[Rfam]
RNA: Bacillaceae-1 RNA
Organism: Cytobacillus depressus
RNA sequence: UUAAGAGGAAAUUCGAUUAAUGACCGCUAUGUCUUGUGGCGAACAUCGACGUCAGCAACAUCCUGUGAC
Numbered sequence: 001u002u003a004a005g006a007g008g009a010a011a012u013u014c015g016a017u018u019a020a021u022g023a024c025c026g027c028u029a030u031g032u033c034u035u036g037u038g039g040c041g042a043a044c045a046u047c048g049a050c051g052u053c054a055g056c057a058a059c060a061u062c063c064u065g066u067g068a069c
Stems, first nucleotide, its partner, number of pairs: 013049005026040005055069001058066002
Dot-bracket structure: ............(((((........(((((.....)))))....))))).....(..((.....))..)